SAH (S-adenosyl-L-homocysteine) riboswitch aptamer: a 101-nucleotide sequence from Candidatus Sedimenticola endophacoides. The match comes from Rfam's covariance-model search (56 bits). The base pairs follow the family's consensus structure, which is taken from published work. The source organism's lineage runs through Bacteria, Pseudomonadati, Chromatiales, Sedimenticolaceae and Sedimenticola.
RNA sequence: CCUCGCCGAGGAGCGCUGCAACCCCUUCACCCGCCCCCCAUGCGGCUGAGGGGCCAGGCUCGGGAGGCUUUCUGGAGUUAUUCUAACGGCGCUCAGUUUUU
Numbered sequence: 001c002c003u004c005g006c007c008g009a010g011g012a013g014c015g016c017u018g019c020a021a022c023c024c025c026u027u028c029a030c031c032c033g034c035c036c037c038c039c040a041u042g043c044g045g046c047u048g049a050g051g052g053g054c055c056a057g058g059c060u061c062g063g064g065a066g067g068c069u070u071u072c073u074g075g076a077g078u079u080a081u082u083c084u085a086a087c088g089g090c091g092c093u094c095a096g097u098u099u100u101u
Stems, first nucleotide, its partner, number of pairs: 002066003006063004022053006